[Rfam]
RNA sequence: CUUGAUCGAGAUCCUGUUUCCGUGAUGAUCAUCCUCGGGAAGGUGCGCCCACUUUCACGCCACCUCGCCGAGGCU
Numbered sequence: 001c002u003u004g005a006u007c008g009a010g011a012u013c014c015u016g017u018u019u020c021c022g023u024g025a026u027g028a029u030c031a032u033c034c035u036c037g038g039g040a041a042g043g044u045g046c047g048c049c050c051a052c053u054u055u056c057a058c059g060c061c062a063c064c065u066c067g068c069c070g071a072g073g074c075u
Stems, first nucleotide, its partner, number of pairs: 003031005008021001010019001039056007
RNA: Actinobacteria sRNA Ms_AS-8